[Rfam]
RNA sequence: GGGAAGCAUCAAAGAGAUGAGAUGCUUCCUGAUACAAUCUUCCUACAUAAAAACUCUGAUGUUUCCUUGCUUAUAGUAACUCGUGCAAGUCACAAACCUCCAGAGACAUGA
Numbered sequence: 001g002g003g004a005a006g007c008a009u010c011a012a013a014g015a016g017a018u019g020a021g022a023u024g025c026u027u028c029c030u031g032a033u034a035c036a037a038u039c040u041u042c043c044u045a046c047a048u049a050a051a052a053a054c055u056c057u058g059a060u061g062u063u064u065c066c067u068u069g070c071u072u073a074u075a076g077u078a079a080c081u082c083g084u085g086c087a088a089g090u091c092a093c094a095a096a097c098c099u100c101c102a103g104a105g106a107c108a109u110g111a
Base pairs, nucleotide, nucleotide: 001030002029003028005026006025007024008023009022010021055104056103057102066089067088068087069086070085072083
Small nucleolar RNA snoR104: a 111-nucleotide RNA sequence from Hibiscus syriacus.
Rfam 15.1 lists 612 matches to the family in 228 species.
NCBI's taxonomy places the organism under Eukaryota, Spermatophyta, Magnoliopsida, Malvaceae, Hibiscus.